[Rfam]
RNA sequence: CUCUGUUAAAGAAUACUUAUUCAGGGCAAAGGAG
Numbered sequence: 001c002u003c004u005g006u007u008a009a010a011g012a013a014u015a016c017u018u019a020u021u022c023a024g025g026g027c028a029a030a031g032g033a034g
Base pairs, nucleotide, nucleotide: 001026002025003024004023005022007019008018009017
The family of this 34-nucleotide RNA sequence from Zizania palustris is "L31-Firmicutes ribosomal protein leader".
On this family, see Eckert and Weinberg, BMC Microbiol 2020: "Discovery of 20 novel ribosomal leader candidates in bacteria and archaea".
NCBI's taxonomy places the organism under Eukaryota, Mesangiospermae, Liliopsida, Petrosaviidae, Zizania.
It is annotated as a cis-regulatory leader.
The family's consensus secondary structure is taken from published work.
Its Rfam clan is "Ribosomal Protein L31 Leader clan".